[Rfam]
RNA: Small nucleolar RNA U83B
RNA sequence: AGGUCUCAGUCUCGAGUCUAUAAAAUAAAUGUGCCAGGCAUUGUGCCUGAUUUCUUCUAAGGCUGCUUUCUAUGCUGACAUCUUUCCCAAAGGCCU
Numbered sequence: 001a002g003g004u005c006u007c008a009g010u011c012u013c014g015a016g017u018c019u020a021u022a023a024a025a026u027a028a029a030u031g032u033g034c035c036a037g038g039c040a041u042u043g044u045g046c047c048u049g050a051u052u053u054c055u056u057c058u059a060a061g062g063c064u065g066c067u068u069u070c071u072a073u074g075c076u077g078a079c080a081u082c083u084u085u086c087c088c089a090a091a092g093g094c095c096u
Stems, first nucleotide, its partner, number of pairs: 001096005